[Rfam]
RNA sequence: UGAUAAAGAACAUUUGCUAAGAUCGCUCACGUCGUGUGAGCGACGCCAAGUCCCCUCGUCACGAGGG
Numbered sequence: 001u002g003a004u005a006a007a008g009a010a011c012a013u014u015u016g017c018u019a020a021g022a023u024c025g026c027u028c029a030c031g032u033c034g035u036g037u038g039a040g041c042g043a044c045g046c047c048a049a050g051u052c053c054c055c056u057c058g059u060c061a062c063g064a065g066g067g
Stems, first nucleotide, its partner, number of pairs: 011050001013049002016046002026040005053067005
Shown here is a 67-nucleotide sequence from Halalkalibacter nanhaiisediminis, a member of the family "Bacillaceae-1 RNA". Lineage of the source: Bacteria > Bacillati > Bacillota > Bacilli > Halalkalibacter. It is annotated as a small RNA.